[Rfam]
S10-Clostridia ribosomal protein leader: a 79-nucleotide RNA from Anaerofilum sp. An201. The family's RNA type in Rfam is cis-regulatory leader. Pairs were carried over by alignment from the consensus structure, which is taken from published work. On this family, see Eckert and Weinberg, BMC Microbiol 2020: "Discovery of 20 novel ribosomal leader candidates in bacteria and archaea".
RNA sequence: GAUAUGCGAUGACGCGGGAGGUUGCCACGACGUUUCGUGGGUUUUUCCGCCGAGUAUGUCCGAUCUUAGAACCGGGCGA
Numbered sequence: 001g002a003u004a005u006g007c008g009a010u011g012a013c014g015c016g017g018g019a020g021g022u023u024g025c026c027a028c029g030a031c032g033u034u035u036c037g038u039g040g041g042u043u044u045u046u047c048c049g050c051c052g053a054g055u056a057u058g059u060c061c062g063a064u065c066u067u068a069g070a071a072c073c074g075g076g077c078g079a
Stems, first nucleotide, its partner, number of pairs: 014050003018047004025040005057078006064071001